[Rfam]
RNA sequence: AGGAUUACUUCAAACGGGACCAUUGAUUGGUCCUAUGUUCAUAAGUGCUUCUCUUUGGGGUAAUUUUA
Numbered sequence: 001a002g003g004a005u006u007a008c009u010u011c012a013a014a015c016g017g018g019a020c021c022a023u024u025g026a027u028u029g030g031u032c033c034u035a036u037g038u039u040c041a042u043a044a045g046u047g048c049u050u051c052u053c054u055u056u057g058g059g060g061u062a063a064u065u066u067u068a
Base pairs, nucleotide, nucleotide: 004064005063006062007061008060009059010058011057014055016053017052018051019049021047022046023045024044026042028041
RNA: miR-430 microRNA precursor family